[Rfam]
RNA sequence: GGGAGUAGAUAGGUGCUGGUGUGCCUACCGGUCUUCAAAACCGUGUUUUCGUGCUAAGACCACGAUGGGUGGGUUCGAUUCCCACAUAUUCCC
Numbered sequence: 001g002g003g004a005g006u007a008g009a010u011a012g013g014u015g016c017u018g019g020u021g022u023g024c025c026u027a028c029c030g031g032u033c034u035u036c037a038a039a040a041c042c043g044u045g046u047u048u049u050c051g052u053g054c055u056a057a058g059a060c061c062a063c064g065a066u067g068g069g070u071g072g073g074u075u076c077g078a079u080u081c082c083c084a085c086a087u088a089u090u091c092c093c
Base pairs, nucleotide, nucleotide: 001093002092003091004090005089006088007087008085011026012025013024014023015022016021029043030042031041032040047067049065050064051063070084071083072082073081
RNA: Selenocysteine transfer RNA
Organism: Hathewaya proteolytica